[Rfam]
RNA sequence: CCGGAUCUUUUUGCGGUCUGGGCUUUCUGGGUCUACAAUCCCAAUGUCAGAAAGCCCUUACCCCAAAAAGCAUUCG
Dot-bracket structure: ......(((((((.(((..((((.(.((....................)).).))))..))).)))))))......
Numbered sequence: 001c002c003g004g005a006u007c008u009u010u011u012u013g014c015g016g017u018c019u020g021g022g023c024u025u026u027c028u029g030g031g032u033c034u035a036c037a038a039u040c041c042c043a044a045u046g047u048c049a050g051a052a053a054g055c056c057c058u059u060a061c062c063c064c065a066a067a068a069a070g071c072a073u074u075c076g
Stems, first nucleotide, its partner, number of pairs: 007070007015062003020057004025052001027050002